[Rfam]
RNA: U11 spliceosomal RNA
Organism: Heliornis fulica
RNA sequence: AAAAAGGGCUUCUGCCGUGCGUGGCACGGGGGGGCUGAACGGCCGCCCCCGCGGAAUCGACAUCAAGAGAUUUCGGAAGCACAAUUUUUGUGGUUUGGGCCGUCGGUAACCGCUAGUUCCGGCGCCCCG
Numbered sequence: 001a002a003a004a005a006g007g008g009c010u011u012c013u014g015c016c017g018u019g020c021g022u023g024g025c026a027c028g029g030g031g032g033g034g035c036u037g038a039a040c041g042g043c044c045g046c047c048c049c050c051g052c053g054g055a056a057u058c059g060a061c062a063u064c065a066a067g068a069g070a071u072u073u074c075g076g077a078a079g080c081a082c083a084a085u086u087u088u089u090g091u092g093g094u095u096u097g098g099g100c101c102g103u104c105g106g107u108a109a110c111c112g113c114u115a116g117u118u119c120c121g122g123c124g125c126c127c128c129g
Stems, first nucleotide, its partner, number of pairs: 008080005013026005027051006033044004052075007097127004102123005108118003